U11 spliceosomal RNA: a 127-nucleotide RNA sequence from Dendrobium nobile. The organism belongs to Dendrobium, within Eukaryota. The match comes from Rfam's covariance-model search (63 bits).
RNA sequence: UAAAAGGGUCGGUUGGCUAUGCAUGUCACGCACAUCUUUUAAUUGAUGAGCACUAUAUGGCUAUCAAGACAUAUGGCCGACAUAAUUUAUGUAUAUUAUAAGGUUGGUUUGUUUGGCCAACCCUCUU
Numbered sequence: 001u002a003a004a005a006g007g008g009u010c011g012g013u014u015g016g017c018u019a020u021g022c023a024u025g026u027c028a029c030g031c032a033c034a035u036c037u038u039u040u041a042a043u044u045g046a047u048g049a050g051c052a053c054u055a056u057a058u059g060g061c062u063a064u065c066a067a068g069a070c071a072u073a074u075g076g077c078c079g080a081c082a083u084a085a086u087u088u089a090u091g092u093a094u095a096u097u098a099u100a101a102g103g104u105u106g107g108u109u110u111g112u113u114u115g116g117c118c119a120a121c122c123c124u125c126u127u
Stems, first nucleotide, its partner, number of pairs: 008081005014028004030051002033048004053076007098126001100124001102122008

Rfam 15.1 lists 2,595 matches to the family in 1,202 species.